[Rfam]
RNA sequence: UAACAGAUAAGAGAGCUUUCUUCAGUCCACUCAUGGGCGGCGAUGGGAUUUAAUUAGCUGCCGACUCAUUCAUCCAAAUGCUGUGUUAAAAAGGAUCAGCAAAAGAUACCCAGCAAAUGAAUGAAUGAUGCGGGAGACAAAUUGAAUCUUGAACUUCCUGUGCUUGGACUGAAGGGAGCUCCCUCUGCUGUUAUC
Numbered sequence: 001u002a003a004c005a006g007a008u009a010a011g012a013g014a015g016c017u018u019u020c021u022u023c024a025g026u027c028c029a030c031u032c033a034u035g036g037g038c039g040g041c042g043a044u045g046g047g048a049u050u051u052a053a054u055u056a057g058c059u060g061c062c063g064a065c066u067c068a069u070u071c072a073u074c075c076a077a078a079u080g081c082u083g084u085g086u087u088a089a090a091a092a093g094g095a096u097c098a099g100c101a102a103a104a105g106a107u108a109c110c111c112a113g114c115a116a117a118u119g120a121a122u123g124a125a126u127g128a129u130g131c132g133g134g135a136g137a138c139a140a141a142u143u144g145a146a147u148c149u150u151g152a153a154c155u156u157c158c159u160g161u162g163c164u165u166g167g168a169c170u171g172a173a174g175g176g177a178g179c180u181c182c183c184u185c186u187g188c189u190g191u192u193a194u195c
Base pairs, nucleotide, nucleotide: 013181014180015179016178017177018176019175020174023171024170025169026168027167028166029165036158058136059135061133062132063131067127068126069125070124075119
The record is a 195-nucleotide RNA from Durio zibethinus, which matches "MIR159 microRNA precursor family" in Rfam. Rfam 15.1 lists 3,649 matches to the family in 242 species. The match comes from Rfam's covariance-model search (160 bits). A reference for the family is Sunkar and Zhu (2004), "Novel and stress-regulated microRNAs and other small RNAs from Arabidopsis", Plant Cell.